[Rfam]
RNA sequence: CUUCCCAUUUAUUUGCUGCUGUAGUCUCUCAGUGAUAUGAGCAGUUAUACGCAUGGGAUAAAACAAUAUUGGGCCACUGCAGGUUGAGGUGAAGCGUUUCAUCUCCUCUGCAUGGUCUAGACAUUG
Numbered sequence: 001c002u003u004c005c006c007a008u009u010u011a012u013u014u015g016c017u018g019c020u021g022u023a024g025u026c027u028c029u030c031a032g033u034g035a036u037a038u039g040a041g042c043a044g045u046u047a048u049a050c051g052c053a054u055g056g057g058a059u060a061a062a063a064c065a066a067u068a069u070u071g072g073g074c075c076a077c078u079g080c081a082g083g084u085u086g087a088g089g090u091g092a093a094g095c096g097u098u099u100c101a102u103c104u105c106c107u108c109u110g111c112a113u114g115g116u117c118u119a120g121a122c123a124u125u126g
Base pairs, nucleotide, nucleotide: 003058004057005056006055007054008053015045016044017043018042019041020040022037023036025035026034069120070119071118072117073116074115075114076113078112079111080110081109086105087104088103089102090101091100092099093098
Rfam assigns this 126-nucleotide sequence from Jaculus jaculus to the family "Small nucleolar RNA SNORA20". ACA20 is a member of the H/ACA class of snoRNA that guide the sites of modification of uridines to pseudouridines. Its family is annotated with RNA processing and nucleolus in the Gene Ontology. By type it is an H/ACA-box small nucleolar RNA. Rfam 15.1 lists 437 matches to the family in 157 species.